About this RNA: The family of this 389-nucleotide sequence from Mucilaginibacter pineti is "Bacterial RNase P class A". Its family is annotated with dimeric ribonuclease P complex, tRNA processing and ribonuclease P activity in the Gene Ontology. By type it is a ribozyme. Rfam's curators write: Ribonuclease P (RNase P) is a ubiquitous endoribonuclease, found in archaea, bacteria and eukarya as well as chloroplasts and mitochondria.

RNA sequence: GCUGCAAAACGUUCUAUCGCCGCCAACUUGUUUGGCGGAGGAAAGUCCGGGCAACACAGAGCAUCCUGCUUCCUAACGGGAAGGCGCCGGCAGCCGGCGACAGCAAAGUGCCACAGAAAAGAUACCGCCCCGGUUUUAAUUGGGGUAAGGGUGAAAAUGUGAGGUAAGAGCUCACAACAUUGCCGGGCGACCGGGGAUGAUGGUAAACCUCAGGAGUUGAAAAACCAAAUAGGUCCUGAAAGCGGAGCUGCUCGCUCCCGUGUUACGUAUACGUAGCCGUUAGGAUGGGUAGGUUGUUUAAACCUGUCAGCAAUGGCAGGGCCAGAUUAAUGAUAGAAACUGCCCGUUAAACGGCAGUACAGAACCCGGCUUACAGAUUUGCUGCUGAA
Numbered sequence: 001g002c003u004g005c006a007a008a009a010c011g012u013u014c015u016a017u018c019g020c021c022g023c024c025a026a027c028u029u030g031u032u033u034g035g036c037g038g039a040g041g042a043a044a045g046u047c048c049g050g051g052c053a054a055c056a057c058a059g060a061g062c063a064u065c066c067u068g069c070u071u072c073c074u075a076a077c078g079g080g081a082a083g084g085c086g087c088c089g090g091c092a093g094c095c096g097g098c099g100a101c102a103g104c105a106a107a108g109u110g111c112c113a114c115a116g117a118a119a120a121g122a123u124a125c126c127g128c129c130c131c132g133g134u135u136u137u138a139a140u141u142g143g144g145g146u147a148a149g150g151g152u153g154a155a156a157a158u159g160u161g162a163g164g165u166a167a168g169a170g171c172u173c174a175c176a177a178c179a180u181u182g183c184c185g186g187g188c189g190a191c192c193g194g195g196g197a198u199g200a201u202g203g204u205a206a207a208c209c210u211c212a213g214g215a216g217u218u219g220a221a222a223a224a225c226c227a228a229a230u231a232g233g234u235c236c237u238g239a240a241a242g243c244g245g246a247g248c249u250g251c252u253c254g255c256u257c258c259c260g261u262g263u264u265a266c267g268u269a270u271a272c273g274u275a276g277c278c279g280u281u282a283g284g285a286u287g288g289g290u291a292g293g294u295u296g297u298u299u300a301a302a303c304c305u306g307u308c309a310g311c312a313a314u315g316g317c318a319g320g321g322c323c324a325g326a327u328u329a330a331u332g333a334u335a336g337a338a339a340c341u342g343c344c345c346g347u348u349a350a351a352c353g354g355c356a357g358u359a360c361a362g363a364a365c366c367c368g369g370c371u372u373a374c375a376g377a378u379u380u381g382c383u384g385c386u387g388a389a
Base pairs, nucleotide, nucleotide: 001385002384004382005381006380007379008378010376011374012338013337014336015335016334017333018332020038021037022036023035024034025033026032043372044371045370047369048368049367050366051365052219053218054217055216060270064215065214066213067212068211069083070082071081072080073079084101085099086098087097088096102210103209108208109207110204111203112202125150126149127146128145129144130143131142132141133140134139158176159175160174161173162172163171179198180197181196183194184193185192186191223295224294225293226292233286234285235284236283237282238281262277263276264275265274266273303320304319305318306317307316308315309314